[Rfam]
This 81-nucleotide sequence from Sphingomonas aliaeris belongs to the Rfam family "ZMP/ZTP riboswitch aptamer (pfl RNA motif)". The organism belongs to Sphingomonas, within Bacteria. The base pairs follow the family's consensus structure, which is taken from published work. It scores 58 bits against the family's covariance model.
RNA sequence: CGGCGGUCGCGUAACUGGCGAGACGUGGGACACCACAGGGGAGCGCAGACCGAAGAGACGCCGUUCGCCUGGGCACCCAUG
Numbered sequence: 001c002g003g004c005g006g007u008c009g010c011g012u013a014a015c016u017g018g019c020g021a022g023a024c025g026u027g028g029g030a031c032a033c034c035a036c037a038g039g040g041g042a043g044c045g046c047a048g049a050c051c052g053a054a055g056a057g058a059c060g061c062c063g064u065u066c067g068c069c070u071g072g073g074c075a076c077c078c079a080u081g
Base pairs, nucleotide, nucleotide: 004052005051006050007049008048009046010045011044012043015040016039017069018068019067020066021065025036026035027034028033060074061073062072